[Rfam]
RNA sequence: GAAGUUACAAAAAACUGUUUCUUAACUUUUAACUAAAAAAACUAAAAACCGGUUUUUAAAUAAGGACUUUAAGAACCGUUUCUUAGCUUUUUUUAUUUAAAAGUUAAGAAACAGUUUCUUAACUUC
Numbered sequence: 001g002a003a004g005u006u007a008c009a010a011a012a013a014a015c016u017g018u019u020u021c022u023u024a025a026c027u028u029u030u031a032a033c034u035a036a037a038a039a040a041a042c043u044a045a046a047a048a049c050c051g052g053u054u055u056u057u058a059a060a061u062a063a064g065g066a067c068u069u070u071a072a073g074a075a076c077c078g079u080u081u082c083u084u085a086g087c088u089u090u091u092u093u094u095a096u097u098u099a100a101a102a103g104u105u106a107a108g109a110a111a112c113a114g115u116u117u118c119u120u121a122a123c124u125u126c
Stems, first nucleotide, its partner, number of pairs: 001126006009120002012117021034095007042086004047081002
MIR9563 microRNA precursor family: a 126-nucleotide RNA from Brassica cretica. Pairs were carried over by alignment from the consensus structure, which was predicted with RNAalifold. The family has 2 seed sequences and 5,832 matches in Rfam 15.1. Rfam links the family to the GO terms RISC complex and miRNA-mediated post-transcriptional gene silencing.